[Rfam]
RNA sequence: GAGGAUCUUCAGGGCCAGGUGCAAUUCCUGACCGGCGGUAAGGCGCUGUUGACCAGCCCGAGCCCGCGACUCGCCGCUGUCUUAAGCGGCGACUGAUUUGGUGCGAAGCCAAAGCCGACGGUAUAGUCCGGAUGGAAGAAGAUCGCU
Numbered sequence: 001g002a003g004g005a006u007c008u009u010c011a012g013g014g015c016c017a018g019g020u021g022c023a024a025u026u027c028c029u030g031a032c033c034g035g036c037g038g039u040a041a042g043g044c045g046c047u048g049u050u051g052a053c054c055a056g057c058c059c060g061a062g063c064c065c066g067c068g069a070c071u072c073g074c075c076g077c078u079g080u081c082u083u084a085a086g087c088g089g090c091g092a093c094u095g096a097u098u099u100g101g102u103g104c105g106a107a108g109c110c111a112a113a114g115c116c117g118a119c120g121g122u123a124u125a126g127u128c129c130g131g132a133u134g135g136a137a138g139a140a141g142a143u144c145g146c147u
Base pairs, nucleotide, nucleotide: 004144005143006142007141008140009139010138017029018028019027031127032126033117034116035067036066037065038064062115063114071092072091097113098112099111100110101109119130120129121128